[Rfam]
RNA sequence: AUCGGGGUGCAAAAGUGCUUAUAGUGCAGGUAGUGUGUUGGCAUCUACUGCAGUGUUGGCACUUCCGUGCCACGAU
Numbered sequence: 001a002u003c004g005g006g007g008u009g010c011a012a013a014a015g016u017g018c019u020u021a022u023a024g025u026g027c028a029g030g031u032a033g034u035g036u037g038u039u040g041g042c043a044u045c046u047a048c049u050g051c052a053g054u055g056u057u058g059g060c061a062c063u064u065c066c067g068u069g070c071c072a073c074g075a076u
Stems, first nucleotide, its partner, number of pairs: 004073001006071002009068002013064007021056003025052003029049005

A member of the RNA family "mir-17 microRNA precursor family" from Anolis carolinensis, 76 nucleotides long.
A reference for the family is Liu et al. (2025), "Structural Features Within Precursor microRNA-20a Regulate Dicer-TRBP Processing", J Mol Biol.
Rfam links the family to the GO terms miRNA-mediated post-transcriptional gene silencing and RISC complex.
It scores 64 bits against the family's covariance model.